[Rfam]
RNA sequence: UAACUUAAAGGGAGAAGUUGUAUCGCUAUAUGUGUAUAUUAUCAUAAGCGUAUAGCUUUUCCCCUUGGUCA
Numbered sequence: 001u002a003a004c005u006u007a008a009a010g011g012g013a014g015a016a017g018u019u020g021u022a023u024c025g026c027u028a029u030a031u032g033u034g035u036a037u038a039u040u041a042u043c044a045u046a047a048g049c050g051u052a053u054a055g056c057u058u059u060u061c062c063c064c065u066u067g068g069u070c071a
Stems, first nucleotide, its partner, number of pairs: 003069003007065001010063003014059002018055005026048002029046004